A member of the RNA family "Bacterial large subunit ribosomal RNA" from Micromonospora inyonensis, 467 nucleotides of a longer RNA. NCBI's taxonomy places the organism under Bacteria, Bacillati, Micromonosporales, Micromonosporaceae, Micromonospora. A search with the family's covariance model found it, with a score of 2802 bits. A reference for the family is Cannone et al. (2002), "The comparative RNA web (CRW) site: an online database of comparative sequence and structure information for ribosomal, intron, and other RNAs", BMC Bioinformatics.

RNA sequence: GAAAGAAGGGUGAGAAACCCUUCCGCCGGAUGACCAAGGGUUCCAGGGCCAGGCUAAUCCGCCCUGGGUGAGUCGGGACCUAAGGCGAGGCCGAGAGGCGUAGUCGAUGGACAACGGGUUGAUAUUCCCGUACCCGCGAAAGAGCGUCCCUGAUGAACCUCGUUGUGCUAACCACCCGAGCCUGGUGAGGUCUUCGGACUGAUCUGGGGGAGCGUGGGAACCUGGCGGGUAGUAGUCAAGCGAUGGGGUGACGCAGGAAGGUAGCUGAGCCCGGCCGGUGGUUGUGCCGGGGUAAGCGUGUAGGCCGCACCAUAGGCAAAUCCGUGGUGCAUGGGGCUGAGACGUGAUGCCGAGCCGAUUCAGGUGAAGUCAGUGAUCCUAUGCUGCCGAGAAAAGCCUCUAGCGAGUUCUUAGCGGCCCGUACCCCAAACCGACACAGGUGGUCAGGUAGAGAAUACCGAGGCGAU
Number, nucleotide and partner (000 for none) at each position: 001g000002a000003a000004a000005g023006a022007a021008g020009g019010g018011u000012g000013a000014g000015a000016a000017a000018c010019c009020c008021u007022u006023c005024c465025g464026c463027c462028g000029g000030a000031u000032g445033a444034c443035c442036a000037a000038g425039g424040g000041u000042u000043c067044c066045a065046g064047g063048g062049c000050c000051a000052g060053g059054c000055u000056a000057a000058u000059c053060c052061g000062c048063c047064c046065u045066g044067g043068g000069u000070g000071a000072g000073u000074c421075g420076g419077g418078a000079c110080c109081u000082a000083a000084g105085g104086c103087g000088a101089g000090g099091c098092c097093g000094a000095g000096a000097g092098g091099c090100g000101u088102a000103g086104u085105c084106g000107a000108u000109g080110g079111a000112c000113a000114a131115c130116g129117g128118g127119u000120u000121g000122a000123u000124a000125u000126u000127c118128c117129c116130g115131u114132a000133c000134c417135c416136g415137c414138g000139a412140a000141a411142g410143a409144g408145c000146g000147u000148c000149c000150c000151u000152g000153a000154u000155g000156a000157a000158c000159c000160u000161c000162g000163u000164u000165g000166u000167g000168c000169u000170a000171a000172c000173c000174a000175c000176c000177c000178g000179a000180g000181c000182c000183u000184g000185g000186u000187g000188a000189g000190g000191u000192c000193u000194u000195c000196g000197g000198a000199c000200u000201g000202a000203u000204c000205u000206g000207g000208g000209g000210g000211a000212g000213c000214g000215u000216g000217g000218g000219a000220a000221c000222c000223u000224g000225g000226c000227g000228g000229g000230u000231a000232g000233u000234a000235g000236u000237c000238a000239a000240g404241c403242g000243a000244u000245g400246g399247g398248g397249u396250g000251a000252c000253g387254c386255a385256g384257g000258a000259a380260g379261g378262u000263a000264g374265c373266u372267g371268a370269g000270c291271c290272c289273g288274g287275c286276c000277g000278g000279u000280g000281g000282u000283u000284g000285u000286g275287c274288c273289g272290g271291g270292g350293u349294a000295a000296g345297c344298g343299u342300g000301u000302a000303g338304g337305c336306c000307g330308c329309a328310c327311c326312a325313u324314a000315g323316g322317c000318a000319a000320a000321u000322c316323c315324g313325u312326g311327g310328u309329g308330c307331a000332u000333g000334g000335g000336g305337c304338u303339g000340a000341g000342a299343c298344g297345u296346g000347a000348u000349g293350c292351c000352g000353a000354g365355c364356c363357g000358a000359u000360u000361c000362a000363g356364g355365u354366g000367a000368a000369g000370u268371c267372a266373g265374u264375g000376a000377u000378c261379c260380u259381a000382u000383g000384c256385u255386g254387c253388c000389g000390a000391g000392a000393a000394a000395a000396g249397c248398c247399u246400c245401u000402a000403g241404c240405g000406a000407g000408u144409u143410c142411u141412u139413a000414g137415c136416g135417g134418c077419c076420c075421g074422u000423a000424c039425c038426c000427c000428a000429a000430a000431c440432c439433g000434a000435c000436a000437c000438a000439g432440g431441u000442g035443g034444u033445c032446a000447g459448g458449u457450a456451g000452a000453g000454a000455a000456u450457a449458c448459c447460g000461a000462g027463g026464c025465g024466a000467u000